Bacillaceae-1 RNA: a 63-nucleotide sequence from Peribacillus cavernae. The base pairs follow the family's consensus structure, which is taken from published work.
[Rfam]
RNA sequence: CUAAAUGGAACGUCGACUAACAUCCGCCACGUCCUGUGGCGAACGUCGACGUCAGCACAUCCU
Numbered sequence: 001c002u003a004a005a006u007g008g009a010a011c012g013u014c015g016a017c018u019a020a021c022a023u024c025c026g027c028c029a030c031g032u033c034c035u036g037u038g039g040c041g042a043a044c045g046u047c048g049a050c051g052u053c054a055g056c057a058c059a060u061c062c063u
Stems, first nucleotide, its partner, number of pairs: 011051007026040005